[Rfam]
RNA sequence: UGGCGGGGGAGCACCACAAGGGGUGGAGGCUGCGGUUUAAUUGGAUUCAACGCCGGAAAACUCACCGGAGGCGACGGCAGAAUGACGGCCAAGUUGGUGACUUUGCCUGACGAGCCGAGAGGAGGUGCAUGGCCGCCGUCAGUUCGUACCGUGAGGUGUCCUCUUAAGUGAGGUAACGAACGAGACCCCCACCCUCAGUUACCAGCAGAUUCCUAUGGAAUGAUGGGGACUCUGAGGGGACCGCUGCUGCUAAAGCAGAGGAAGGAGGGGGCAACGGUAGGUCAGUAUGCCCCGAAUCCUUCGGGCUACACGCGGCCUACAAUGGUUACGACAAUGGGUUCCAACACCGAAAGGUGAAGGUAAUCCCCUAAACGUAAUCUCAGUCCGGAUUGAGGGCUGCAACUCGCCCUCAUGAAGCUGGAAUCCCUAGUAAUCGCGUGUCACUAUCGCGCGGUGAAUACGUCCCUGCUCCUUGCACACACCGCCCGUCAUAUCACCUGAGUAGGGCUUGGAUGAGGGCUUGUCUAUGGCAAGUUCGAAUCCGAGUUCUGCAAGGGGGGUAAAGUCGUAACAAGGUAGCCGUAGGGGAACCUGCGGCUA
Dot-bracket structure: (((((.(((((((..((..((((((.((((((((((....((((........))))........(((((((...((((.(......(((.(((.......))).)))...)..))))...((.((((..(((((((((...(((((((((....)))..((((......))))..)))))).....((((.(((((((...((..((.((((.....))))..))))....)))))))..((.(((((.....))))).)).....))))....)))).)))...))))))))....)))))))...)).)))))))).)...(((((((.....(((..((..((((....))))..))....))).....)))))))......(....(((((((........)))))))....).....))))).....((((((((.......))))))))......))...)))))))))).))..(.(..((.(.((((.(((..(((((((((((((..(((((((((...)))))))))..)))))))))))))..))).))))..).))...)..).((((((((((....))))))))))

About this RNA
This 600-nucleotide part of an RNA from a Theionarchaea archaeon belongs to the Rfam family "Archaeal small subunit ribosomal RNA". NCBI's taxonomy places the organism under Archaea, Methanobacteriati, Methanobacteriota, Theionarchaea. Gene Ontology terms of the family: ribosome and structural constituent of ribosome. For this family Rfam cites "Crystal structure of the ribosome at 5.5 A resolution" (Yusupov et al., Science, 2001). The family has 86 seed sequences and 709 matches in Rfam 15.1. The family's consensus secondary structure is taken from published work.